[Rfam]
A member of the RNA family "Fluoride riboswitch aptamer (crcB RNA motif)" from Thermoanaerobacter sp. X514, 59 nucleotides long. It is one of the family's seed sequences.
RNA sequence: AUACCAUAAGGCGAUGGAGCUCGCCAUAAAUGCGGAACGCUGAUGGCUCCUAUUAGGAG
Dot-bracket structure: .........[[[[..((((((]]]]......(((...)))....)))))).........